[Rfam]
RNA: U4atac minor spliceosomal RNA
RNA sequence: ACCAUCCUUUUCUUGGGGUUGCGUUACUGUCCAAUGAACGCAUAGUGAGGGCAGUACUGCUAACGCCUGAACAACACGUUCGCAUCGGCUAAAAUUUCGGUUUUAGCUCGGUGCAAUUUUUGGAAAA
Numbered sequence: 001a002c003c004a005u006c007c008u009u010u011u012c013u014u015g016g017g018g019u020u021g022c023g024u025u026a027c028u029g030u031c032c033a034a035u036g037a038a039c040g041c042a043u044a045g046u047g048a049g050g051g052c053a054g055u056a057c058u059g060c061u062a063a064c065g066c067c068u069g070a071a072c073a074a075c076a077c078g079u080u081c082g083c084a085u086c087g088g089c090u091a092a093a094a095u096u097u098c099g100g101u102u103u104u105a106g107c108u109c110g111g112u113g114c115a116a117u118u119u120u121u122g123g124a125a126a127a
Stems, first nucleotide, its partner, number of pairs: 006018004021060003026055007038046002082114006090105006